The record is an 86-nucleotide RNA sequence from Phyllostomus discolor, which matches "mir-365 microRNA precursor family" in Rfam. The family's consensus secondary structure was predicted with RNAalifold. Its family is annotated with miRNA-mediated post-transcriptional gene silencing and RISC complex in the Gene Ontology.
RNA sequence: CAGCAAGAAAAAUAAAGGACUUUCAGGGGCAGCUGUGUUUCCUAUCUUAGGCCAUAAUGCCCCUAAAAAUCCUUAUUGCUCUUGCA
Numbered sequence: 001c002a003g004c005a006a007g008a009a010a011a012a013u014a015a016a017g018g019a020c021u022u023u024c025a026g027g028g029g030c031a032g033c034u035g036u037g038u039u040u041c042c043u044a045u046c047u048u049a050g051g052c053c054a055u056a057a058u059g060c061c062c063c064u065a066a067a068a069a070u071c072c073u074u075a076u077u078g079c080u081c082u083u084g085c086a
Base pairs, nucleotide, nucleotide: 015074016073017072018071019070021068022067023066025064026063027062028061029060030059031058034056035055036054037053
On this family, see Xie et al., Nature 2005: "Systematic discovery of regulatory motifs in human promoters and 3' UTRs by comparison of several mammals".